[Rfam]
RNA sequence: CCUUUGGGGAGUAGCCGCUUGUCCUAACAAGACCACCGUCAACACAUUUGAAGCACAUCUUCAUGGCGUUGGUGACUCACACAAUCCCUACACGUGAGUUU
Numbered sequence: 001c002c003u004u005u006g007g008g009g010a011g012u013a014g015c016c017g018c019u020u021g022u023c024c025u026a027a028c029a030a031g032a033c034c035a036c037c038g039u040c041a042a043c044a045c046a047u048u049u050g051a052a053g054c055a056c057a058u059c060u061u062c063a064u065g066g067c068g069u070u071g072g073u074g075a076c077u078c079a080c081a082c083a084a085u086c087c088c089u090a091c092a093c094g095u096g097a098g099u100u101u
Stems, first nucleotide, its partner, number of pairs: 019030003032073004037068005049063005074100007
About this RNA: Manganese Mn2+ riboswitch aptamer (yybP-ykoY): a 101-nucleotide RNA from Photobacterium aphoticum. Rfam's curators write: This RNA was originally discovered in E. coli during a large scale screen and was named SraF. The family was later found to exist upstream of related families of protein genes in many bacteria, including the the yybP and ykoK genes in B. subtilis. The specific functions of these proteins are unknown, but this structured RNA element may be involved in their genetic regulation as a riboswitch. The literature on the family includes a 2001 paper in Curr Biol by Argaman et al., "Novel small RNA-encoding genes in the intergenic regions of Escherichia coli". A search with the family's covariance model found it, with a score of 48 bits. Pairs were carried over by alignment from the consensus structure.